RNA: Small nucleolar RNA SNORD121A
Organism: Calonectris borealis
RNA sequence: GUCCAAAAUACAGUGAUGUUGUCUUUUCCAAGCACAUAUCUUAUUGCUCUGUGUGGAAAUGACUGUUGCUGAGUGAUUUUUGGAU
Numbered sequence: 001g002u003c004c005a006a007a008a009u010a011c012a013g014u015g016a017u018g019u020u021g022u023c024u025u026u027u028c029c030a031a032g033c034a035c036a037u038a039u040c041u042u043a044u045u046g047c048u049c050u051g052u053g054u055g056g057a058a059a060u061g062a063c064u065g066u067u068g069c070u071g072a073g074u075g076a077u078u079u080u081u082g083g084a085u
Base pairs, nucleotide, nucleotide: 001085002084003083004082005081006080008078009075010074011073